[Rfam]
RNA sequence: AUCUAUCUUCGGGGCAGGGUGAAAUUCCCGAUCGGCGGUAAUGGACCAUGGUCCUGAGCCCGCGAGCCUGUAAGGGCAGGAUCCGGUGCAAUUCCGGGGCCGACAGUGACAGUCUGGAUGGGAGAAGAUGGAG
Numbered sequence: 001a002u003c004u005a006u007c008u009u010c011g012g013g014g015c016a017g018g019g020u021g022a023a024a025u026u027c028c029c030g031a032u033c034g035g036c037g038g039u040a041a042u043g044g045a046c047c048a049u050g051g052u053c054c055u056g057a058g059c060c061c062g063c064g065a066g067c068c069u070g071u072a073a074g075g076g077c078a079g080g081a082u083c084c085g086g087u088g089c090a091a092u093u094c095c096g097g098g099g100c101c102g103a104c105a106g107u108g109a110c111a112g113u114c115u116g117g118a119u120g121g122g123a124g125a126a127g128a129u130g131g132a133g
Base pairs, nucleotide, nucleotide: 003131004130005129006128007127008126009125010124017029018028019027031113032112033102034101035063036062037061038060058100059099068076082098083097084096085095086094104116105115106114